[Rfam]
RNA sequence: AUGUUAUCAAGAAAGGUGGAGGGAUUAGACCCUAUGAAACCUUAGCAACCCUUUUUAAUAAAAAGCUCUCUUUUAUCGGAUUAAAAUCAUCUUUUAGAUAAUGA
Numbered sequence: 001a002u003g004u005u006a007u008c009a010a011g012a013a014a015g016g017u018g019g020a021g022g023g024a025u026u027a028g029a030c031c032c033u034a035u036g037a038a039a040c041c042u043u044a045g046c047a048a049c050c051c052u053u054u055u056u057a058a059u060a061a062a063a064a065g066c067u068c069u070c071u072u073u074u075a076u077c078g079g080a081u082u083a084a085a086a087u088c089a090u091c092u093u094u095u096a097g098a099u100a101a102u103g104a
Stems, first nucleotide, its partner, number of pairs: 002103007013043005021032003028074001044069002049065001052062003073096001078092004
RNA: SAM riboswitch aptamer (S box leader)
Organism: Aureibaculum marinum